[Rfam]
RNA sequence: AAUAAAGAAUUGCUGAAUUCUCAUUUACUUGAGAAGCGGGGGAUCCAUUUUAGGUGAAUUAAUUCCGUAAGGCAGGAAUUAUAGGGAACCUUCUACCGAACCAUUAGCUAACCUCGCAGGCACGAAGGGAGAAAAA
Numbered sequence: 001a002a003u004a005a006a007g008a009a010u011u012g013c014u015g016a017a018u019u020c021u022c023a024u025u026u027a028c029u030u031g032a033g034a035a036g037c038g039g040g041g042g043a044u045c046c047a048u049u050u051u052a053g054g055u056g057a058a059u060u061a062a063u064u065c066c067g068u069a070a071g072g073c074a075g076g077a078a079u080u081a082u083a084g085g086g087a088a089c090c091u092u093c094u095a096c097c098g099a100a101c102c103a104u105u106a107g108c109u110a111a112c113c114u115c116g117c118a119g120g121c122a123c124g125a126a127g128g129g130a131g132a133a134a135a136a
Stems, first nucleotide, its partner, number of pairs: 011122004018035006036117006053102002060081007084097002087094001
Rfam assigns this 136-nucleotide RNA from a Paenibacillaceae bacterium to the family "c-di-AMP riboswitch aptamer (ydaO/yuaA leader)". This family represents a conserved RNA structure found upstream of the ydaO and yuaA genes in Bacillus subtilis and related genes in other bacteria. The ydaO/yuaA element is thought to act as a genetic 'off' switch for the ydaO and yuaA genes in its native state. It is believed that the element may be triggered during osmotic shock leading to activation of ydaO, a predicted amino acid transporter gene, and members of the yuaA-yubG operon which code for KtrA and KtrB K+ transporters.